[Rfam]
RNA sequence: AAGCGUCUUCAGGGCGGGGCGAAACUCCCCACCGGCGGUAGGUUUCCAUGAGGAAACGAGCCCGCGAGCGCUCCCGGCCACGCCGGGAGGUCAGCAGAUCCGGUCCGAUGCCGGAGCCGACGGUCACAGUCCGGAUGAAAGAAGACGGCA
Numbered sequence: 001a002a003g004c005g006u007c008u009u010c011a012g013g014g015c016g017g018g019g020c021g022a023a024a025c026u027c028c029c030c031a032c033c034g035g036c037g038g039u040a041g042g043u044u045u046c047c048a049u050g051a052g053g054a055a056a057c058g059a060g061c062c063c064g065c066g067a068g069c070g071c072u073c074c075c076g077g078c079c080a081c082g083c084c085g086g087g088a089g090g091u092c093a094g095c096a097g098a099u100c101c102g103g104u105c106c107g108a109u110g111c112c113g114g115a116g117c118c119g120a121c122g123g124u125c126a127c128a129g130u131c132c133g134g135a136u137g138a139a140a141g142a143a144g145a146c147g148g149c150a
Stems, first nucleotide, its partner, number of pairs: 004147007017029003031130002033119002035065004060117002068095002099115005121133003

The record is a 150-nucleotide sequence, which matches "FMN riboswitch aptamer (RFN element)" in Rfam.
The family has 146 seed sequences and 6,230 matches in Rfam 15.1.
The family's consensus secondary structure is taken from published work.